[Rfam]
RNA: Glm Y RNA activator of glmS mRNA
Organism: Pantoea sp. Eser
RNA sequence: CGCUGCUCGUUCAUCUGUUUAUGAUUGCCCCGCACUGCGGAAAAGAGCUCAUAAAAUCCGAAUGACGCACCAAACGGAGCCUGCCGUCCACCUCAUCGAUAAUCGUUUGCUUUGCAACGUUAUCAAACGCCGGACGUAACGUUGAGUAAGGCUCCACCCA
Numbered sequence: 001c002g003c004u005g006c007u008c009g010u011u012c013a014u015c016u017g018u019u020u021a022u023g024a025u026u027g028c029c030c031c032g033c034a035c036u037g038c039g040g041a042a043a044a045g046a047g048c049u050c051a052u053a054a055a056a057u058c059c060g061a062a063u064g065a066c067g068c069a070c071c072a073a074a075c076g077g078a079g080c081c082u083g084c085c086g087u088c089c090a091c092c093u094c095a096u097c098g099a100u101a102a103u104c105g106u107u108u109g110c111u112u113u114g115c116a117a118c119g120u121u122a123u124c125a126a127a128c129g130c131c132g133g134a135c136g137u138a139a140c141g142u143u144g145a146g147u148a149a150g151g152c153u154c155c156a157c158c159c160a
Stems, first nucleotide, its partner, number of pairs: 005068002007065006019054006027048002076155007085136005098124005139147002